[Rfam]
RNA sequence: GCAUGGGCUUGGACUCAUGGCAGGCCCGUCCCCUGGGUCUCAUCGUGCCCCGUGCCAGAGCCAACUGGCCUGGAACCACUGCCCAGCUCUGCCAGUGGGCUGCAGGCACUGAAACGGGUUACACAGUG
Numbered sequence: 001g002c003a004u005g006g007g008c009u010u011g012g013a014c015u016c017a018u019g020g021c022a023g024g025c026c027c028g029u030c031c032c033c034u035g036g037g038u039c040u041c042a043u044c045g046u047g048c049c050c051c052g053u054g055c056c057a058g059a060g061c062c063a064a065c066u067g068g069c070c071u072g073g074a075a076c077c078a079c080u081g082c083c084c085a086g087c088u089c090u091g092c093c094a095g096u097g098g099g100c101u102g103c104a105g106g107c108a109c110u111g112a113a114a115c116g117g118g119u120u121a122c123a124c125a126g127u128g
Base pairs, nucleotide, nucleotide: 001055002054003053004052005050006049007048008047015045017043018042019041020040023039024038025036026035066121067120068119069118070117071116077111078110082106083105084102085101086100087099088098089097
RNA: Small nucleolar RNA SNORA42/SNORA80 family